Rfam assigns this 114-nucleotide RNA sequence from Streptomyces sp. 846.5 to the family "SAM (S-adenosyl methionine) riboswitch aptamer". The organism belongs to Streptomyces, within Bacteria. Pairs were carried over by alignment from the consensus structure, which is taken from published work. The match comes from Rfam's covariance-model search (105 bits). The literature on the family includes a 2008 paper in RNA by Weinberg et al., "The aptamer core of SAM-IV riboswitches mimics the ligand-binding site of SAM-I riboswitches". SAM-IV is a mRNA element that regulates gene expression via direct sensing of S-adenosylmethionine (SAM or AdoMet). SAM-IV riboswitches share conserved nucleotide positions with the previously described SAM-I riboswitches sequence analysis and molecular recognition experiments suggest that SAM-I and SAM-IV riboswitches share similar ligand binding sites, but have different scaffolds.
[Rfam]
Nucleotides: 114
Stems, first nucleotide, its partner, number of pairs: 001078004009038001011037006021030002039065003044061003048056001081103010
Number, partner (000 for none) and nucleotide at each position: 001078g002077g003076u004075c005000a006000u007000g008000a009038g010000u011037g012036u013035c014034a015033g016032c017000g018000u019000c020000g021030a022029g023000c024000c025000c026000u027000g028000g029022c030021u031000u032016g033015c034014u035013g036012g037011c038009c039065g040064g041063c042000a043000a044061c045060c046059c047000u048056c049000g050000u051000c052000c053000g054000c055000g056048g057000u058000g059046g060045g061044g062000u063041g064040c065039u066000c067000c068000a069000g070000g071000u072000g073000a074000u075004g076003a077002c078001c079000c080000g081103a082102c083101a084100g085099g086098a087097c088096g089095g090094c091000u092000g093000u094090g095089c096088c097087g098086u099085c100084c101083u102082g103081u104000a105000a106000g107000c108000g109000c110000g111000a112000g113000a114000u